RNA sequence: UGGGCGGUAUCGGAAGAACUGCACCAGUGAUUCAUCCACAAAUUAAAAAAGGUUCUGCCUAGAUCCGAAAAACGGACCGGGACAGAGGG
Numbered sequence: 001u002g003g004g005c006g007g008u009a010u011c012g013g014a015a016g017a018a019c020u021g022c023a024c025c026a027g028u029g030a031u032u033c034a035u036c037c038a039c040a041a042a043u044u045a046a047a048a049a050a051g052g053u054u055c056u057g058c059c060u061a062g063a064u065c066c067g068a069a070a071a072a073c074g075g076a077c078c079g080g081g082a083c084a085g086a087g088g089g
Stems, first nucleotide, its partner, number of pairs: 001026003004022005010017002055085003058081003062077001064076003

pan motif: an 89-nucleotide RNA from Mesobacillus zeae. Rfam classes the family as a cis-regulatory element. Pairs were carried over by alignment from the consensus structure, which is taken from published work. The organism belongs to Mesobacillus, within Bacteria.